MIR8024 microRNA precursor family: an 86-nucleotide sequence from Solanum commersonii.
RNA sequence: UUGGAGGAUUUGAAGACAUCAACUUACAUACUUGGAGGAUUUGAAUAAUUCUAUUUGUAUACUUGAAGUAUUUGAAGACUUUAACU
Numbered sequence: 001u002u003g004g005a006g007g008a009u010u011u012g013a014a015g016a017c018a019u020c021a022a023c024u025u026a027c028a029u030a031c032u033u034g035g036a037g038g039a040u041u042u043g044a045a046u047a048a049u050u051c052u053a054u055u056u057g058u059a060u061a062c063u064u065g066a067a068g069u070a071u072u073u074g075a076a077g078a079c080u081u082u083a084a085c086u
Stems, first nucleotide, its partner, number of pairs: 001084006009076006017068001019066003025059004032053001034051003

Rfam 15.1 lists 661 matches to the family in 8 species.